[Rfam]
RNA: skipping-rope RNA
RNA sequence: GAGAAGUGAGGUAGAGAUGAUAGUGUUCCUACGCACCCAUGAGGUAGAAGAGAUGACGGGACAGACACACCGUCCACUACUC
Numbered sequence: 001g002a003g004a005a006g007u008g009a010g011g012u013a014g015a016g017a018u019g020a021u022a023g024u025g026u027u028c029c030u031a032c033g034c035a036c037c038c039a040u041g042a043g044g045u046a047g048a049a050g051a052g053a054u055g056a057c058g059g060g061a062c063a064g065a066c067a068c069a070c071c072g073u074c075c076a077c078u079a080c081u082c
Stems, first nucleotide, its partner, number of pairs: 001082003005078004011032004023068005034050001035045003055074005